[Rfam]
RNA sequence: GUGGGCGUGGCGAAGCGGUCAACGCACCGGAUUGUGGCUCCGGCACUCGUGGGUUCGAAUCCCAUCGCUCACC
Numbered sequence: 001g002u003g004g005g006c007g008u009g010g011c012g013a014a015g016c017g018g019u020c021a022a023c024g025c026a027c028c029g030g031a032u033u034g035u036g037g038c039u040c041c042g043g044c045a046c047u048c049g050u051g052g053g054u055u056c057g058a059a060u061c062c063c064a065u066c067g068c069u070c071a072c073c
Stems, first nucleotide, its partner, number of pairs: 001072007010025003027043005049065005
RNA: tRNA